[Rfam]
RNA: FMN riboswitch aptamer (RFN element)
RNA sequence: AACGUGCUCCGGGGUCGGUGAGAGUCCGAACCGGCGGUGAUAGUCCGCGACCCGUGCAACGCGCAAGCGAUGCCCGGUUGACCUGGUGGAACUCCAGGACCGACGGUUAUGAACGCGUCUGCUCGCAGGCGGCGUUCGAGUCCGGAUGGAAGGAGGCACGGG
Numbered sequence: 001a002a003c004g005u006g007c008u009c010c011g012g013g014g015u016c017g018g019u020g021a022g023a024g025u026c027c028g029a030a031c032c033g034g035c036g037g038u039g040a041u042a043g044u045c046c047g048c049g050a051c052c053c054g055u056g057c058a059a060c061g062c063g064c065a066a067g068c069g070a071u072g073c074c075c076g077g078u079u080g081a082c083c084u085g086g087u088g089g090a091a092c093u094c095c096a097g098g099a100c101c102g103a104c105g106g107u108u109a110u111g112a113a114c115g116c117g118u119c120u121g122c123u124c125g126c127a128g129g130c131g132g133c134g135u136u137c138g139a140g141u142c143c144g145g146a147u148g149g150a151a152g153g154a155g156g157c158a159c160g161g162g
Stems, first nucleotide, its partner, number of pairs: 003160005008154003016028003032102002034048004043100002052077002082098005104144003